This 102-nucleotide RNA from Clostridiales bacterium oral taxon 876 belongs to the Rfam family "Purine riboswitch aptamer". Rfam's curators write: Riboswitches are metabolite binding domains within certain messenger RNAs that serve as precision sensors for their corresponding targets. Allosteric rearrangement of mRNA structure is mediated by ligand binding, and this results in modulation of gene expression. Lineage of the source: Bacteria > Bacillati > Clostridia > Eubacteriales > Clostridiales bacterium oral taxon 876. Pairs were carried over by alignment from the consensus structure, which is taken from published work.
RNA sequence: AUUAAAACAGAAUAUUCCAUCCAUAUAAUUCUGAUGAUAUGGUUCAGAAGUUUCUACGAGAAAACCUUAAAUUUUCUGUCUAUGGGUGAGUCCUAAAAGCAU
Numbered sequence: 001a002u003u004a005a006a007a008c009a010g011a012a013u014a015u016u017c018c019a020u021c022c023a024u025a026u027a028a029u030u031c032u033g034a035u036g037a038u039a040u041g042g043u044u045c046a047g048a049a050g051u052u053u054c055u056a057c058g059a060g061a062a063a064a065c066c067u068u069a070a071a072u073u074u075u076c077u078g079u080c081u082a083u084g085g086g087u088g089a090g091u092c093c094u095a096a097a098a099g100c101a102u
Stems, first nucleotide, its partner, number of pairs: 018088008029049006059077006
Dot-bracket structure: .................((((((((...((((((.........)))))).........((((((.......))))))...))))))))..............